[Rfam]
RNA sequence: GGUUUCGAGUAAUCGCUGCAAACGUUCAGACGUUUGUAGAGGAAAGUCCAUGCUCACACGGCUCUGAGAUGACCGUAGUGUUCGUGCUUACCGAAACCAUAAGGUAAGGCAAAGCUUCCCACAGCUUUGACGGCGGAAGGAAGACCUAAGUCGCGCUAUGCGAUAUGGUCGACACUUCCUGAAAAGUGCCACAGUGACGUAGCUUCACUGGAAACGGUGAAGGUGGAACGCGGUAAACCCCACGAGUGAGAAACCCAAAUUAUGGUAGGGGAGCCCUCCCGAAGGAAAUGAACGGAGGGAGGGACGGGGAGAAUUCUUCUUCCCGUAGAUAGAUGAUUACUACCUGACAGUACGAGGCGAAAGCCGCUUGAGUACGCAGGGACAGAACAUGGCUUACAGAA
Number, nucleotide and partner (000 for none) at each position: 001g000002g000003u000004u401005u400006c399007g397008a341009g340010u339011a338012a337013u336014c335015g000016c039017u038018g037019c036020a035021a034022a033023c032024g000025u000026u000027c000028a000029g000030a000031c000032g023033u022034u021035u020036g019037u018038a017039g016040a000041g000042g000043a000044a395045a394046g393047u000048c392049c391050a390051u389052g388053c250054u249055c248056a247057c246058a076059c075060g074061g073062c000063u072064c071065u000066g000067a000068g000069a000070u000071g064072a063073c061074c060075g059076u058077a000078g000079u000080g000081u000082u245083c244084g243085u242086g241087c108088u107089u106090a105091c104092c103093g000094a000095a000096a000097c000098c000099a000100u000101a000102a000103g092104g091105u090106a089107a088108g087109g131110c129111a128112a127113a126114g125115c124116u000117u000118c000119c000120c000121a000122c000123a000124g115125c114126u113127u112128u111129g110130a000131c109132g240133g239134c000135g179136g178137a177138a176139g000140g000141a000142a000143g170144a169145c168146c167147u000148a000149a000150g164151u163152c162153g161154c160155g159156c000157u000158a000159u155160g154161c153162g152163a151164u150165a000166u000167g146168g145169u144170c143171g000172a000173c000174a000175c000176u138177u137178c136179c135180u000181g000182a000183a000184a000185a000186g238187u237188g234189c233190c232191a000192c000193a000194g000195u000196g000197a000198c000199g000200u000201a000202g000203c222204u221205u220206c219207a218208c217209u216210g215211g000212a000213a000214a000215c210216g209217g208218u207219g206220a205221a204222g203223g000224u000225g000226g000227a000228a000229c000230g000231c000232g190233g189234u188235a000236a000237a187238c186239c133240c132241c086242a085243c084244g083245a082246g057247u056248g055249a054250g053251a000252a000253a000254c270255c269256c268257a000258a000259a000260u000261u000262a000263u000264g000265g000266u000267a000268g256269g255270g254271g000272a000273g000274c303275c302276c301277u300278c299279c298280c297281g000282a000283a000284g000285g000286a000287a000288a000289u000290g000291a000292a000293c000294g000295g000296a000297g280298g279299g278300a277301g276302g275303g274304a326305c325306g324307g323308g322309g321310a320311g319312a318313a000314u000315u000316c000317u000318u312319c311320u310321u309322c308323c307324c306325g305326u304327a000328g000329a000330u000331a000332g000333a000334u000335g014336a013337u012338u011339a010340c009341u008342a000343c380344c379345u378346g377347a000348c000349a000350g375351u374352a373353c372354g000355a000356g000357g000358c000359g000360a000361a000362a000363g000364c000365c000366g000367c000368u000369u000370g000371a000372g353373u352374a351375c350376g000377c346378a345379g344380g343381g000382a000383c000384a000385g000386a000387a000388c052389a051390u050391g049392g048393c046394u045395u044396a000397c007398a000399g006400a005401a004